[Rfam]
Shown here is a 98-nucleotide sequence from Azospira restricta, a member of the family "c-di-GMP-I-GGC riboswitch aptamer". It scores 68 bits against the family's covariance model. On this family, see Weinberg et al., Proc Natl Acad Sci U S A 2017: "Bioinformatic analysis of riboswitch structures uncovers variant classes with altered ligand specificity". The organism belongs to Azospira, within Bacteria.
RNA sequence: CACGACAAAGGCAAACCCGUCGAAAGGCGGGGGCGCAAAGCUACCGGGCUGACGGAAUCGACCAGCAACCGAUUCGCAAGCCAGCGGGGCCACCGAAA
Numbered sequence: 001c002a003c004g005a006c007a008a009a010g011g012c013a014a015a016c017c018c019g020u021c022g023a024a025a026g027g028c029g030g031g032g033g034c035g036c037a038a039a040g041c042u043a044c045c046g047g048g049c050u051g052a053c054g055g056a057a058u059c060g061a062c063c064a065g066c067a068a069c070c071g072a073u074u075c076g077c078a079a080g081c082c083a084g085c086g087g088g089g090c091c092a093c094c095g096a097a098a
Stems, first nucleotide, its partner, number of pairs: 003095002011036002016031006034084001040090003044087003047082003